[Rfam]
RNA sequence: GGGCUCAUGAUGAGCAGUUUCUGAGCACGAGGAAGGUGACACUCGAUGUGAGUGCUCUGAAGUCC
Numbered sequence: 001g002g003g004c005u006c007a008u009g010a011u012g013a014g015c016a017g018u019u020u021c022u023g024a025g026c027a028c029g030a031g032g033a034a035g036g037u038g039a040c041a042c043u044c045g046a047u048g049u050g051a052g053u054g055c056u057c058u059g060a061a062g063u064c065c
Stems, first nucleotide, its partner, number of pairs: 001065005012057003020051002022045004
About this RNA: Shown here is a 65-nucleotide RNA from Rousettus aegyptiacus, a member of the family "Small Nucleolar RNA SNORD64". Clan: SNORD74 clan. The family's consensus secondary structure was predicted with RNAalifold. NCBI's taxonomy places the organism under Eukaryota, Amniota, Theria, Laurasiatheria, Rousettus. Rfam describes the family as follows. The human snoRNA HBII-13 belongs to the C/D family of snoRNAs. It is expressed mainly in the brain, but is also in the lungs, the kidneys and muscle. For this family Rfam cites "The IC-SNURF-SNRPN transcript serves as a host for multiple small nucleolar RNA species and as an antisense RNA for UBE3A" (Runte et al., Hum Mol Genet, 2001).